Bacterial RNase P class A: a 413-nucleotide sequence from Acetobacter sp. DsW_54. By type it is a ribozyme.

[Rfam]
RNA sequence: CCAGACGGUCGGACGGUCGCUGUUGUGCGUUUUUGCGCAUGAUGGAGGAAAGUCCGGGCUCCACGGGAAGAACGGUGCCGGUUAACGACCGGCGAGGGUGACCUUAGGGAAAGUGCCACAGAAAACAGACCGCCUUCCGGGUUCCAUGCCAUGGGAAACCAUGGGACGGGCUGAAGGUAAGGGUGAAACGGUGCGGUAAGAGCGCACCGCUCCGCUGGUAACAGGGGAGGCACGGCAAACCCCACCGGGAGCAAGACCGAAUAGGAACGGCAGAAACCUUAGGGUUUCGGGGGUUCUCCCGCCCCGUCGUUCGGGUUGGUCGCGUGAGGCAUGUUGCAAGACAUGUCCCAGAGGAAUGAUCGUCCAGGCCCUUUUGGGCUAGACAGAACCCGGCUUACAGACCGUCUGGCAUU
Numbered sequence: 001c002c003a004g005a006c007g008g009u010c011g012g013a014c015g016g017u018c019g020c021u022g023u024u025g026u027g028c029g030u031u032u033u034u035g036c037g038c039a040u041g042a043u044g045g046a047g048g049a050a051a052g053u054c055c056g057g058g059c060u061c062c063a064c065g066g067g068a069a070g071a072a073c074g075g076u077g078c079c080g081g082u083u084a085a086c087g088a089c090c091g092g093c094g095a096g097g098g099u100g101a102c103c104u105u106a107g108g109g110a111a112a113g114u115g116c117c118a119c120a121g122a123a124a125a126c127a128g129a130c131c132g133c134c135u136u137c138c139g140g141g142u143u144c145c146a147u148g149c150c151a152u153g154g155g156a157a158a159c160c161a162u163g164g165g166a167c168g169g170g171c172u173g174a175a176g177g178u179a180a181g182g183g184u185g186a187a188a189c190g191g192u193g194c195g196g197u198a199a200g201a202g203c204g205c206a207c208c209g210c211u212c213c214g215c216u217g218g219u220a221a222c223a224g225g226g227g228a229g230g231c232a233c234g235g236c237a238a239a240c241c242c243c244a245c246c247g248g249g250a251g252c253a254a255g256a257c258c259g260a261a262u263a264g265g266a267a268c269g270g271c272a273g274a275a276a277c278c279u280u281a282g283g284g285u286u287u288c289g290g291g292g293g294u295u296c297u298c299c300c301g302c303c304c305c306g307u308c309g310u311u312c313g314g315g316u317u318g319g320u321c322g323c324g325u326g327a328g329g330c331a332u333g334u335u336g337c338a339a340g341a342c343a344u345g346u347c348c349c350a351g352a353g354g355a356a357u358g359a360u361c362g363u364c365c366a367g368g369c370c371c372u373u374u375u376g377g378g379c380u381a382g383a384c385a386g387a388a389c390c391c392g393g394c395u396u397a398c399a400g401a402c403c404g405u406c407u408g409g410c411a412u413u
Stems, first nucleotide, its partner, number of pairs: 001409010011398001012364007020045009050396003054393005059251004070298002073247005078092005093107001094105004108242002113240002115236003130182002132178006139171001190208006209231001210229004215224003255321004265312006291305003295301001328347008
NCBI's taxonomy places the organism under Bacteria, Pseudomonadati, Alphaproteobacteria, Acetobacteraceae, Acetobacter.